[Rfam]
RNA sequence: UUGAAGCUCCAUCUACAAAUGGAUAAAAUUUCAUUUUUAGCUUAGUGUAGAUGAGUUAGUGAAAGUAAAGGGGCAGUGCCGAUUUCUUGACAAAACAAGAAAUCGGUUAUUGCUCCUUU
Numbered sequence: 001u002u003g004a005a006g007c008u009c010c011a012u013c014u015a016c017a018a019a020u021g022g023a024u025a026a027a028a029u030u031u032c033a034u035u036u037u038u039a040g041c042u043u044a045g046u047g048u049a050g051a052u053g054a055g056u057u058a059g060u061g062a063a064a065g066u067a068a069a070g071g072g073g074c075a076g077u078g079c080c081g082a083u084u085u086c087u088u089g090a091c092a093a094a095a096c097a098a099g100a101a102a103u104c105g106g107u108u109a110u111u112g113c114u115c116c117u118u119u
Stems, first nucleotide, its partner, number of pairs: 008023005067119012080105003084101005